[Rfam]
small nucleolar RNA snoR134: a 140-nucleotide sequence from Polarella glacialis. On this family, see Chen and Wu, Nucleic Acids Res 2009: "Mining small RNA sequencing data: a new approach to identify small nucleolar RNAs in Arabidopsis". By type it is an H/ACA-box small nucleolar RNA.
RNA sequence: UGGCGAGUCGGACCCCGGGCCCAAUCCCAUUUCUCAUUGGGGAUGCGGUCCCUAUUCCACUGGCCACAGUGGUUUUCCGUGCGCCGUGUUGCAGGUUGCUUUCGUAUGGGCCUUCUGUGUCAAAAUUCGCCGGGACAUUC
Numbered sequence: 001u002g003g004c005g006a007g008u009c010g011g012a013c014c015c016c017g018g019g020c021c022c023a024a025u026c027c028c029a030u031u032u033c034u035c036a037u038u039g040g041g042g043a044u045g046c047g048g049u050c051c052c053u054a055u056u057c058c059a060c061u062g063g064c065c066a067c068a069g070u071g072g073u074u075u076u077c078c079g080u081g082c083g084c085c086g087u088g089u090u091g092c093a094g095g096u097u098g099c100u101u102u103c104g105u106a107u108g109g110g111c112c113u114u115c116u117g118u119g120u121c122a123a124a125a126u127u128c129g130c131c132g133g134g135a136c137a138u139u140c
Stems, first nucleotide, its partner, number of pairs: 003064002006061003010058002017051005022045002025043003077133003081130003087122002090119006098111003